RNA sequence: GGGGUCGACUGGUUUUGACAGCGAGAUUAAUUAAACGGUAAGCACGUCGAGUAAUGAUUUUGAACUCGUAAAACGCUAAGUCAACUUUUUAAUCGGCGAGAAUAACUACGCUUUAGCUGCCUAAUCCGAAUUAUAGUAGGAUUAAGCCUCGGCUCACAAGGUGAGCAAGCUUUAUGUCUCCGGAAAGCCUUGAUUGACGGCGUUCCAUUUUGAGGCAUCGAAAAUGUCAAUAUAGAUUAAGUAGCGCUUCGAUGCUUUUUCGAAACUUAAGAAGAUAAGUUAAAAGUAGGUUGUUUGUUACCAGCUUUUAAUCGAAAACCUAAGAACAAAAUAAACGUGUAGAAAGCCCUUUGGUUACUUGUUUGGACGAGAGUUCGAUUCUCUCCGACUCCACUU
Numbered sequence: 001g002g003g004g005u006c007g008a009c010u011g012g013u014u015u016u017g018a019c020a021g022c023g024a025g026a027u028u029a030a031u032u033a034a035a036c037g038g039u040a041a042g043c044a045c046g047u048c049g050a051g052u053a054a055u056g057a058u059u060u061u062g063a064a065c066u067c068g069u070a071a072a073a074c075g076c077u078a079a080g081u082c083a084a085c086u087u088u089u090u091a092a093u094c095g096g097c098g099a100g101a102a103u104a105a106c107u108a109c110g111c112u113u114u115a116g117c118u119g120c121c122u123a124a125u126c127c128g129a130a131u132u133a134u135a136g137u138a139g140g141a142u143u144a145a146g147c148c149u150c151g152g153c154u155c156a157c158a159a160g161g162u163g164a165g166c167a168a169g170c171u172u173u174a175u176g177u178c179u180c181c182g183g184a185a186a187g188c189c190u191u192g193a194u195u196g197a198c199g200g201c202g203u204u205c206c207a208u209u210u211u212g213a214g215g216c217a218u219c220g221a222a223a224a225u226g227u228c229a230a231u232a233u234a235g236a237u238u239a240a241g242u243a244g245c246g247c248u249u250c251g252a253u254g255c256u257u258u259u260u261c262g263a264a265a266c267u268u269a270a271g272a273a274g275a276u277a278a279g280u281u282a283a284a285a286g287u288a289g290g291u292u293g294u295u296u297g298u299u300a301c302c303a304g305c306u307u308u309u310a311a312u313c314g315a316a317a318a319c320c321u322a323a324g325a326a327c328a329a330a331a332u333a334a335a336c337g338u339g340u341a342g343a344a345a346g347c348c349c350u351u352u353g354g355u356u357a358c359u360u361g362u363u364u365g366g367a368c369g370a371g372a373g374u375u376c377g378a379u380u381c382u383c384u385c386c387g388a389c390u391c392c393a394c395u396u
Stems, first nucleotide, its partner, number of pairs: 001392007019365003024360002027357001031354005037348003043339005048068005055083006112135001114133003118130001120128001175217006182206004187201003193231005235261002239257003247274004279312009289302003294330003298325002369385005